[Rfam]
RNA sequence: UUUUCUUAUGUCGUGUAUCCUCGAUUGAUGUGGCCUCAGAUGCUUCA
Numbered sequence: 001u002u003u004u005c006u007u008a009u010g011u012c013g014u015g016u017a018u019c020c021u022c023g024a025u026u027g028a029u030g031u032g033g034c035c036u037c038a039g040a041u042g043c044u045u046c047a
Stems, first nucleotide, its partner, number of pairs: 010025004032044003
RNA: Plastid-ycf3 group II-D1 intron
Organism: Panicum miliaceum